[Rfam]
Small nucleolar RNA snR80: a 179-nucleotide RNA from Penicillium cosmopolitanum. It is annotated as an H/ACA-box small nucleolar RNA. Taxonomically the source falls in Penicillium (Eukaryota, leotiomyceta, Eurotiales, Aspergillaceae). Rfam 15.1 lists 447 matches to the family in 358 species. It scores 45 bits against the family's covariance model. The family is grouped with related families in Rfam's "SNORA28 clan". The base pairs follow the family's consensus structure, which was predicted with WAR.
RNA sequence: AAACACCUUACAACACUCUGGCCCUUACCGUUCUUUUCCUGCGGGAACUGGACAUAUCUCAUUGUGGUAUCCGGCUUAUUUUAAGUAAGGGAGAGCAACUGAUCCUUUACUCACCGCGGUAUCCUUGGAGUGCGCUUGCGUACUCCGUGGGUACAGUGGUCCAUUUUUGUGGUCUACAU
Numbered sequence: 001a002a003a004c005a006c007c008u009u010a011c012a013a014c015a016c017u018c019u020g021g022c023c024c025u026u027a028c029c030g031u032u033c034u035u036u037u038c039c040u041g042c043g044g045g046a047a048c049u050g051g052a053c054a055u056a057u058c059u060c061a062u063u064g065u066g067g068u069a070u071c072c073g074g075c076u077u078a079u080u081u082u083a084a085g086u087a088a089g090g091g092a093g094a095g096c097a098a099c100u101g102a103u104c105c106u107u108u109a110c111u112c113a114c115c116g117c118g119g120u121a122u123c124c125u126u127g128g129a130g131u132g133c134g135c136u137u138g139c140g141u142a143c144u145c146c147g148u149g150g151g152u153a154c155a156g157u158g159g160u161c162c163a164u165u166u167u168u169g170u171g172g173u174c175u176a177c178a179u
Base pairs, nucleotide, nucleotide: 007090008089009088020076021075022074023073026069027068028067029066031052032051033050101174102173103172104171114159115158116157117156119154120153121152123151124150125149